[Rfam]
RNA sequence: AAUGGGGAUGCCGAAAACCGUAUAGAGUAGGCA
Number, nucleotide and partner (000 for none) at each position: 001a000002a021003u020004g019005g018006g000007g000008a000009u000010g032011c031012c030013g000014a000015a000016a000017a000018c005019c004020g003021u002022a000023u000024a000025g000026a000027g000028u000029a000030g012031g011032c010033a000
RNA: DUF805b RNA